[Rfam]
RNA sequence: GCACACAUACACACGUUCCUUGCUUCCAUGGGCCGCGGUUGACCCUGACAGGAGGCUGAAUAAUCCGUAAGGAGCAAUUCGAUG
Numbered sequence: 001g002c003a004c005a006c007a008u009a010c011a012c013a014c015g016u017u018c019c020u021u022g023c024u025u026c027c028a029u030g031g032g033c034c035g036c037g038g039u040u041g042a043c044c045c046u047g048a049c050a051g052g053a054g055g056c057u058g059a060a061u062a063a064u065c066c067g068u069a070a071g072g073a074g075c076a077a078u079u080c081g082a083u084g
Base pairs, nucleotide, nucleotide: 015075016074017073018072019071020070021069022056023055024054025053026052027051030045031044032043
The record is an 84-nucleotide RNA sequence from Serratia fonticola, which matches "RpsF leader" in Rfam. Rfam's curators write: Conserved and widely distributed to many bacterial species RNA structure. It precedes operon containing rpsF, which encodes ribosomal protein S6. The motif also precedes operon containing rpsR, which encodes ribosomal protein S18. The RNA was shown to interact with S6:S18 protein dimer in vitro. It was shown that RpsF leader regulates gene expression in response to the S6:S18 complex, contributing to the regulation of ribosomal protein levels. On this family, see Fu et al., RNA 2014: "Bacterial RNA motif in the 5' UTR of rpsF interacts with an S6:S18 complex". The family's RNA type in Rfam is cis-regulatory leader. It is one of the family's seed sequences.